This 88-nucleotide RNA sequence from Parvibaculum lavamentivorans belongs to the Rfam family "ZMP/ZTP riboswitch aptamer (pfl RNA motif)". The organism belongs to Parvibaculum lavamentivorans, within Bacteria. It is one of the family's seed sequences. Its family is annotated with regulation of purine nucleotide biosynthetic process and one-carbon metabolic process in the Gene Ontology.

[Rfam]
RNA sequence: UAUCCUCCGCGCGACUGGCGAAAUCAGAUGGGUCACCAUCGGGGAGCGCGGAGACUGGUCUUUCGAGCCGAUCGCCUGGGCAGCACUU
Numbered sequence: 001u002a003u004c005c006u007c008c009g010c011g012c013g014a015c016u017g018g019c020g021a022a023a024u025c026a027g028a029u030g031g032g033u034c035a036c037c038a039u040c041g042g043g044g045a046g047c048g049c050g051g052a053g054a055c056u057g058g059u060c061u062u063u064c065g066a067g068c069c070g071a072u073c074g075c076c077u078g079g080g081c082a083g084c085a086c087u088u
Stems, first nucleotide, its partner, number of pairs: 005053008015043002017076005028039004067081003